[Rfam]
RNA sequence: UCGAAUAGAAGAGGCGCGAUCAACAUGAGUUGCUUUUCCGAGGUGGGCCACACCGAUGACGGGAAGCGAAAGGGGCGAUCGCCGAAAUCUUAAUCACCGACCGUGAUUGGGGUUGGGUCCUGGUUGAAUAAAUCAGGGACUGUCGCAACCGAAUAGGGGUUGCGGGGCGCUUUCAACGAU
Numbered sequence: 001u002c003g004a005a006u007a008g009a010a011g012a013g014g015c016g017c018g019a020u021c022a023a024c025a026u027g028a029g030u031u032g033c034u035u036u037u038c039c040g041a042g043g044u045g046g047g048c049c050a051c052a053c054c055g056a057u058g059a060c061g062g063g064a065a066g067c068g069a070a071a072g073g074g075g076c077g078a079u080c081g082c083c084g085a086a087a088u089c090u091u092a093a094u095c096a097c098c099g100a101c102c103g104u105g106a107u108u109g110g111g112g113u114u115g116g117g118u119c120c121u122g123g124u125u126g127a128a129u130a131a132a133u134c135a136g137g138g139a140c141u142g143u144c145g146c147a148a149c150c151g152a153a154u155a156g157g158g159g160u161u162g163c164g165g166g167g168c169g170c171u172u173u174c175a176a177c178g179a180u
Stems, first nucleotide, its partner, number of pairs: 006175001008173004016082006024074001032067007086114012115141002118138008143165007
Shown here is a 180-nucleotide RNA from Levilactobacillus suantsaii, a member of the family "Lysine riboswitch aptamer".
It scores 123 bits against the family's covariance model.
Taxonomically the source falls in Levilactobacillus (Bacteria, Bacillota, Lactobacillales, Lactobacillaceae).